[Rfam]
RNA: mir-8364 microRNA precursor family
RNA sequence: UCUUCAUUUCUCGUACUCUCUUACCGGUCAGAGUGACGAGAGAGUACGUGAAAUGGGGAGA
Number, nucleotide and partner (000 for none) at each position: 001u059002c058003u057004u056005c055006a054007u053008u000009u000010c050011u000012c048013g047014u046015a045016c044017u043018c000019u041020c040021u039022u038023a000024c000025c000026g000027g000028u000029c000030a000031g000032a000033g000034u000035g000036a000037c000038g022039a021040g020041a019042g000043a017044g016045u015046a014047c013048g012049u000050g010051a000052a000053a007054u006055g005056g004057g003058g002059a001060g000061a000